[Rfam]
RNA sequence: GCGGUGCCUUAGCAGCACGUAAAUAUUGGCGUUAAGAUUCUGAAAUUACCUCCAGUAUUGACUGUGCUGCUGAAGUAAGGU
Numbered sequence: 001g002c003g004g005u006g007c008c009u010u011a012g013c014a015g016c017a018c019g020u021a022a023a024u025a026u027u028g029g030c031g032u033u034a035a036g037a038u039u040c041u042g043a044a045a046u047u048a049c050c051u052c053c054a055g056u057a058u059u060g061a062c063u064g065u066g067c068u069g070c071u072g073a074a075g076u077a078a079g080g081u
Stems, first nucleotide, its partner, number of pairs: 001081002005077003010074001011071008020061001022059008
This 81-nucleotide sequence belongs to the Rfam family "mir-16 microRNA precursor family".
A reference for the family is Calin et al. (2002), "Frequent deletions and down-regulation of micro- RNA genes miR15 and miR16 at 13q14 in chronic lymphocytic leukemia", Proc Natl Acad Sci U S A.
Its Rfam clan is "mir-15 clan".
Pairs were carried over by alignment from the consensus structure, which was predicted with PFOLD.
It is one of the family's seed sequences.